[Rfam]
RNA sequence: CAGUUAACCAGAAAAUCCUGCAACCCUAUCAGUAUUGCCCCUGCUGUCCACUGAGUUCAGAGUAGUGCAAUAUUGCUUAUAGGGUUUCAGUGUUGGUCUUAA
Numbered sequence: 001c002a003g004u005u006a007a008c009c010a011g012a013a014a015a016u017c018c019u020g021c022a023a024c025c026c027u028a029u030c031a032g033u034a035u036u037g038c039c040c041c042u043g044c045u046g047u048c049c050a051c052u053g054a055g056u057u058c059a060g061a062g063u064a065g066u067g068c069a070a071u072a073u074u075g076c077u078u079a080u081a082g083g084g085u086u087u088c089a090g091u092g093u094u095g096g097u098c099u100u101a102a
Stems, first nucleotide, its partner, number of pairs: 020088001022086008030075009041065005
A member of the RNA family "mir-454 microRNA precursor family" from Merluccius polli, 102 nucleotides long. Taxonomically the source falls in Merluccius (Eukaryota, Chordata, Euteleosteomorpha, Gadoidei). The literature on the family includes a 2008 paper in Genome Res by Glazov et al., "A microRNA catalog of the developing chicken embryo identified by a deep sequencing approach". Its family is annotated with RISC complex and miRNA-mediated post-transcriptional gene silencing in the Gene Ontology. A search with the family's covariance model found it, with a score of 78 bits.